[Rfam]
Notes
A member of the RNA family "L31-Actinobacteria ribosomal protein leader" from Streptomyces scopuliridis, 47 nucleotides long. Rfam classes the family as a cis-regulatory leader. NCBI's taxonomy places the organism under Bacteria, Actinomycetota, Kitasatosporales, Streptomyces, Streptomyces scopuliridis. Clan: Ribosomal Protein L31 Leader clan.
RNA sequence: UCGGUCCCGGUUCACGCACGCGCACUCCGUACGUGCGACCCGGUGCC
Numbered sequence: 001u002c003g004g005u006c007c008c009g010g011u012u013c014a015c016g017c018a019c020g021c022g023c024a025c026u027c028c029g030u031a032c033g034u035g036c037g038a039c040c041c042g043g044u045g046c047c
Stems, first nucleotide, its partner, number of pairs: 003047003007043004015037006022030002